[Rfam]
RNA sequence: GGGGCUUUAGCCAAGUGGUAAGGCGUAGGUCUGCAACACCUUGAUCACCGGUUCAAAUCCGGUAGGCCCCU
Numbered sequence: 001g002g003g004g005c006u007u008u009a010g011c012c013a014a015g016u017g018g019u020a021a022g023g024c025g026u027a028g029g030u031c032u033g034c035a036a037c038a039c040c041u042u043g044a045u046c047a048c049c050g051g052u053u054c055a056a057a058u059c060c061g062g063u064a065g066g067c068c069c070c071u
Stems, first nucleotide, its partner, number of pairs: 001070007010024003027041004047063005
Dot-bracket structure: (((((((..(((.........)))..((((.......)))).....(((((.......)))))))))))).

The family of this 71-nucleotide RNA from Mycoplasma sp. CAG:877 is "tRNA". Gene Ontology term of the family: triplet codon-amino acid adaptor activity. Lineage of the source: Bacteria > Bacillati > Mycoplasmatales > Mycoplasmataceae > Mycoplasma. Rfam describes the family as follows. Transfer RNA (tRNA) molecules are approximately 80 nucleotides in length. The family's consensus secondary structure is taken from published work.